[Rfam]
RNA sequence: CCGGGGAGCCGGGCAGCCGCGUCAUCACUUCGUCUGAUGCCGAGGAAAGUCCGGGCUCCACGAAACAAGGGUGGCGGGUAACGCCCGCCGGCCCGGUGCAAACCGGGCAAGGGAAAGUGCCACAGAGAGCAAACCGCCGACAGGGCUUUUCAAGCCUUGGGCAAGGGUGAAAGGGUGCGGUAAGAGCGCACCGCGCGACCGGCAACGGAAGCGGCAAGGCAAACCCCACCCGGAGCAAGACCGAAUAGGGGCAACGCGCAUCCCUCGUGGAUGCAGGCGUGUUUCGCGCCAGUUGCCCGGGUUGGUUGCUAGAGCGGCUUGGCAACAGGUCGCCAAGAGGAAUGGCUGCCCGUGCCGAUACGGUCCACACGUGGGAUACCGUCGGUGCGACAGAACCCGGCUUAUAGGCUCCCCGGCGCG
Number, nucleotide and partner (000 for none) at each position: 001c416002c415003g414004g413005g412006g411007a410008g409009c408010c407011g405012g350013g349014c348015a347016g346017c345018c344019g000020c042021g041022u000023c039024a038025u037026c036027a035028c000029u000030u000031c000032g000033u000034c000035u027036g026037a025038u024039g023040c000041c021042g020043a000044g000045g000046a000047a403048a402049g401050u000051c400052c399053g398054g397055g396056c235057u234058c233059c232060a000061c000062g000063a000064a000065a284066c000067a282068a000069g231070g230071g229072u228073g227074g088075c087076g086077g085078g084079u000080a000081a000082c000083g000084c078085c077086c076087g075088c074089c111090g000091g108092c107093c106094c105095g104096g103097u102098g000099c000100a000101a000102a097103c096104c095105g094106g093107g092108c091109a000110a000111g089112g226113g225114a000115a000116a000117g224118u223119g220120c219121c218122a000123c000124a000125g000126a000127g000128a000129g000130c000131a000132a000133a000134c166135c165136g162137c161138c160139g000140a000141c159142a158143g157144g156145g155146c154147u000148u000149u000150u000151c000152a000153a000154g146155c145156c144157u143158u142159g141160g138161g137162c136163a000164a000165g135166g134167g000168u000169g000170a000171a000172a000173g000174g192175g191176u190177g189178c188179g187180g000181u000182a000183a000184g000185a000186g000187c179188g178189c177190a176191c175192c174193g215194c213195g212196c211197g000198a000199c208200c207201g206202g000203c000204a000205a000206c201207g200208g199209a000210a000211g196212c195213g194214g000215c193216a000217a000218g121219g120220c119221a000222a000223a118224c117225c113226c112227c073228a072229c071230c070231c069232g059233g058234a057235g056236c000237a000238a000239g307240a306241c305242c304243g000244a000245a000246u000247a000248g000249g298250g297251g296252c295253a294254a293255c000256g000257c000258g000259c000260a000261u000262c000263c000264c000265u000266c000267g000268u000269g000270g000271a000272u000273g000274c000275a000276g290277g289278c288279g287280u286281g000282u067283u000284u065285c000286g280287c279288g278289c277290c276291a000292g000293u254294u253295g252296c251297c250298c249299g000300g000301g000302u000303u000304g242305g241306u240307u239308g000309c000310u000311a000312g000313a000314g333315c332316g331317g330318c329319u328320u327321g326322g000323c000324a000325a000326c321327a320328g319329g318330u317331c316332g315333c314334c000335a000336a000337g000338a000339g000340g000341a000342a000343u000344g018345g017346c016347u015348g014349c013350c012351c000352g000353u000354g000355c000356c000357g000358a000359u000360a000361c000362g000363g000364u000365c000366c000367a000368c000369a000370c000371g000372u000373g000374g000375g000376a000377u000378a000379c000380c000381g000382u000383c000384g000385g000386u000387g000388c000389g000390a000391c000392a000393g000394a000395a000396c055397c054398c053399g052400g051401c049402u048403u047404a000405u011406a000407g010408g009409c008410u007411c006412c005413c004414c003415g002416g001417c000418g000419c000420g000
Rfam assigns this 420-nucleotide RNA sequence from Novosphingobium sp. AAP1 to the family "Bacterial RNase P class A". Its family is annotated with ribonuclease P activity, dimeric ribonuclease P complex and tRNA processing in the Gene Ontology. Rfam describes the family as follows. Ribonuclease P (RNase P) is a ubiquitous endoribonuclease, found in archaea, bacteria and eukarya as well as chloroplasts and mitochondria. It is annotated as a ribozyme.